[Rfam]
RNA sequence: GUGGAAGGUAGAGGCGCGGUGUUAAAGAGUAAUGCGAGCAAGGGGGAUCCGCCCCCGCGUGAAAGGGAACACUGCCGAGGGUACACGGUGCGGAUGCUGUCGUGUAUGCCGGUAUUGCAGAGAAGAUCUGCCGUACUGUCACUUUUCUCCUUUGACGGGAGAAAGUGGAGAGCUAUCACGAAG
Numbered sequence: 001g002u003g004g005a006a007g008g009u010a011g012a013g014g015c016g017c018g019g020u021g022u023u024a025a026a027g028a029g030u031a032a033u034g035c036g037a038g039c040a041a042g043g044g045g046g047a048u049c050c051g052c053c054c055c056c057g058c059g060u061g062a063a064a065g066g067g068a069a070c071a072c073u074g075c076c077g078a079g080g081g082u083a084c085a086c087g088g089u090g091c092g093g094a095u096g097c098u099g100u101c102g103u104g105u106a107u108g109c110c111g112g113u114a115u116u117g118c119a120g121a122g123a124a125g126a127u128c129u130g131c132c133g134u135a136c137u138g139u140c141a142c143u144u145u146u147c148u149c150c151u152u153u154g155a156c157g158g159g160a161g162a163a164a165g166u167g168g169a170g171a172g173c174u175a176u177c178a179c180g181a182a183g
Base pairs, nucleotide, nucleotide: 007177008176009175010174011173016075017074018073019072020071021070022069023068032060033059034058035057036056038054079110080109082106083105084104085103086102087101088100089099111137112136113135114134115133117131118130119129120128121127139168140167141166142165143164144163145162